A member of the RNA family "Molybdenum/Tungsten riboswitch aptamer (Moco RNA motif)" from Thalassotalea marina, 136 nucleotides long. A reference for the family is Regulski et al. (2008), "in molybdenum cofactor and tungsten cofactor metabolism", Mol Microbiol. A search with the family's covariance model found it, with a score of 80 bits. The organism belongs to Thalassotalea, within Bacteria.

Nucleotides: 136
Base pairs, nucleotide, nucleotide: 011122012121013120015118016117019053020052021051022050023049024048025047026046028044029043033040034039056074057073058072059071060070061069062068077102078101079100080099081098082097084095085094086093087092103113104112
Number, partner (000 for none) and nucleotide at each position: 001000u002000a003000c004000c005000a006000c007000u008000a009000u010000a011122a012121a013120c014000u015118c016117c017000u018000a019053g020052c021051a022050u023049a024048a025047u026046c027000a028044c029043c030000u031000a032000a033040g034039c035000a036000a037000a038000a039034g040033u041000a042000u043029g044028g045000c046026g047025a048024u049023u050022a051021u052020g053019c054000c055000g056074u057073a058072a059071u060070c061069a062068a063000c064000u065000c066000g067000u068062u069061u070060g071059g072058u073057u074056a075000c076000c077102g078101g079100g080099u081098a082097a083000u084095a085094c086093g087092a088000g089000a090000a091000a092087u093086c094085g095084u096000u097082u098081u099080a100079c101078u102077u103113c104112c105000c106000g107000u108000g109000u110000u111000u112104g113103g114000a115000a116000a117016g118015g119000u120013g121012u122011u123000u124000a125000a126000a127000c128000a129000u130000a131000a132000u133000c134000g135000a136000c